Rfam assigns this 76-nucleotide sequence from Leiothrix lutea to the family "Small nucleolar RNA SNORD69".
Rfam describes the family as follows. snoRNA HBII-210 belongs to the C/D family of snoRNAs. It is the human orthologue of the mouse MBII-210 and is predicted to guide the 2'O-ribose methylation of large 28S rRNA on residue G4464.
The base pairs follow the family's consensus structure.
Lineage of the source: Eukaryota > Eumetazoa > Craniata > Theropoda > Leiothrix.
By type it is a C/D-box small nucleolar RNA.
A search with the family's covariance model found it, with a score of 46 bits.
The literature on the family includes a 2001 paper in EMBO J by Huttenhofer et al., "RNomics: an experimental approach that identifies 201 candidates for novel, small, non-messenger RNAs in mouse".

[Rfam]
RNA sequence: UGCACAGAGCACGUGAUGACAAAGUGUUUCAGCUGAUUGUAUGAAGUACAUUCAAUCCAACACUGAGCUUUGUGUC
Numbered sequence: 001u002g003c004a005c006a007g008a009g010c011a012c013g014u015g016a017u018g019a020c021a022a023a024g025u026g027u028u029u030c031a032g033c034u035g036a037u038u039g040u041a042u043g044a045a046g047u048a049c050a051u052u053c054a055a056u057c058c059a060a061c062a063c064u065g066a067g068c069u070u071u072g073u074g075u076c
Base pairs, nucleotide, nucleotide: 002075003074004073005072006071007070008069009068010067